RNA: SAM riboswitch aptamer (S box leader)
Organism: Jeotgalibacillus sp. S-D1
RNA sequence: AACUUAUCUAGAGAGGUUGAGGGACUGGCCCUUUGACACCUCAGCAACCAGCCACAUUUGGCACGGUGCUAAUUCCAGCAGGUUAUUCUGAAAACCUGGACGAUAAGGA
Numbered sequence: 001a002a003c004u005u006a007u008c009u010a011g012a013g014a015g016g017u018u019g020a021g022g023g024a025c026u027g028g029c030c031c032u033u034u035g036a037c038a039c040c041u042c043a044g045c046a047a048c049c050a051g052c053c054a055c056a057u058u059u060g061g062c063a064c065g066g067u068g069c070u071a072a073u074u075c076c077a078g079c080a081g082g083u084u085a086u087u088c089u090g091a092a093a094a095c096c097u098g099g100a101c102g103a104u105a106a107g108g109a
Stems, first nucleotide, its partner, number of pairs: 003107006013042005021031003025078004043070004048066002051062004079098006